[Rfam]
RNA sequence: UGGUUUUGUCUGAAGUCAAAUCUUUCUUAAGUUUGACCAAAUUUAUAUAAAAGAUUAUCAAUUUUUAUGAUACCAAAUAAACAUACUAUGAAAAUAUAUUUCAUCAUGAAUCUAAUGAUACUUAUUUGGUUUCAUAAAAAAUAGUAAUUUUUUGUAUGAAUUUGGUCAAACUUAAGAAAGUUUGACUUCAGACAAAACCAA
Numbered sequence: 001u002g003g004u005u006u007u008g009u010c011u012g013a014a015g016u017c018a019a020a021u022c023u024u025u026c027u028u029a030a031g032u033u034u035g036a037c038c039a040a041a042u043u044u045a046u047a048u049a050a051a052a053g054a055u056u057a058u059c060a061a062u063u064u065u066u067a068u069g070a071u072a073c074c075a076a077a078u079a080a081a082c083a084u085a086c087u088a089u090g091a092a093a094a095u096a097u098a099u100u101u102c103a104u105c106a107u108g109a110a111u112c113u114a115a116u117g118a119u120a121c122u123u124a125u126u127u128g129g130u131u132u133c134a135u136a137a138a139a140a141a142u143a144g145u146a147a148u149u150u151u152u153u154g155u156a157u158g159a160a161u162u163u164g165g166u167c168a169a170a171c172u173u174a175a176g177a178a179a180g181u182u183u184g185a186c187u188u189c190a191g192a193c194a195a196a197a198c199c200a201a
Stems, first nucleotide, its partner, number of pairs: 005196005011190011023179004032170005046156008056146003060142001062140008073129008
Shown here is a 201-nucleotide RNA sequence from Dichanthelium oligosanthes, a member of the family "MIR1435 microRNA precursor family". Taxonomically the source falls in Dichanthelium (Eukaryota, Spermatophyta, Petrosaviidae, Dichantheliinae).